[Rfam]
RNA sequence: UCAUCACCAUCAUCAUCCUGAUUGAUCUUUCGGGAGGAUACGUAUCGCCCUGGAAGAUCGCAUAAUCUUCCAGAGGCUAGCAAGGAUUGCGCCAUUAUAGCCCUCGGAAGAGAACUUCAUCUUCCGAGGGCUUUUCAGU
Numbered sequence: 001u002c003a004u005c006a007c008c009a010u011c012a013u014c015a016u017c018c019u020g021a022u023u024g025a026u027c028u029u030u031c032g033g034g035a036g037g038a039u040a041c042g043u044a045u046c047g048c049c050c051u052g053g054a055a056g057a058u059c060g061c062a063u064a065a066u067c068u069u070c071c072a073g074a075g076g077c078u079a080g081c082a083a084g085g086a087u088u089g090c091g092c093c094a095u096u097a098u099a100g101c102c103c104u105c106g107g108a109a110g111a112g113a114a115c116u117u118c119a120u121c122u123u124c125c126g127a128g129g130g131c132u133u134u135u136c137a138g139u
Stems, first nucleotide, its partner, number of pairs: 010047001012039003017034005050073008097134001099132012
Rfam assigns this 139-nucleotide sequence from Photobacterium damselae to the family "Histidine operon leader".
The family's RNA type in Rfam is cis-regulatory leader.
Rfam's curators write: At least 6 amino acid operons are known to be regulated by attenuation. In each a leader sequence of 150-200 bp is found upstream of the first gene in the operon. This leader sequence can assume two different secondary structures known as the terminator and the anti-terminator structure. In each case the leader also codes for very short peptide sequence that is rich in the end product amino acid of the operon. The terminator structure is recognised as a termination signal for RNA polymerase and the operon is not transcribed. This structure forms when the cell has an excess of the regulatory amino acid and ribosome movement over the leader transcript is not impeded. When there is a deficiency of the charged tRNA of the regulatory amino acid the ribosome translating the leader peptide stalls and the antiterminator structure can form. This allows RNA polymerase to transcribe the operon. In the Rfam alignment the consensus structure is of the terminator structure.
The literature on the family includes a 1982 paper in Annu Rev Genet by Kolter and Yanofsky, "Attenuation in amino acid biosynthetic operons".
Rfam links the family to the GO term histidine biosynthetic process.
The organism belongs to Photobacterium damselae subsp. damselae, within Bacteria.